[Rfam]
RNA sequence: UCGCGGUCCCCUUCCUUGGGGCGUUUCCUCCCUUGACUUGGCCCGGGCGCCGAUUGGCGACCGGGCCUUUUUAUGUGCUGG
Dot-bracket structure: ........(((.......)))...................((((((.(((......))).))))))...............
RNA: Makes More Granules Regulator RNA (mmgR)